Annotation:
Flavo-1 RNA: an 80-nucleotide sequence from Polaribacter glomeratus.

RNA sequence: GUAUGCCCGCGUUAGGGAUUGAAGAGGAAAUCCUUUUUUAUUUUUCAUAAAAAAGAUUGCAACGUAAAGCCCGACCUUUU
Numbered sequence: 001g002u003a004u005g006c007c008c009g010c011g012u013u014a015g016g017g018a019u020u021g022a023a024g025a026g027g028a029a030a031u032c033c034u035u036u037u038u039u040a041u042u043u044u045u046c047a048u049a050a051a052a053a054a055g056a057u058u059g060c061a062a063c064g065u066a067a068a069g070c071c072c073g074a075c076c077u078u079u080u
Base pairs, nucleotide, nucleotide: 015072016071017070019068020067024063029058030057031056032055035053036052037051038050039049040048041047
NCBI's taxonomy places the organism under Bacteria, Bacteroidota, Flavobacteriales, Flavobacteriaceae, Polaribacter.
A search with the family's covariance model found it, with a score of 61 bits.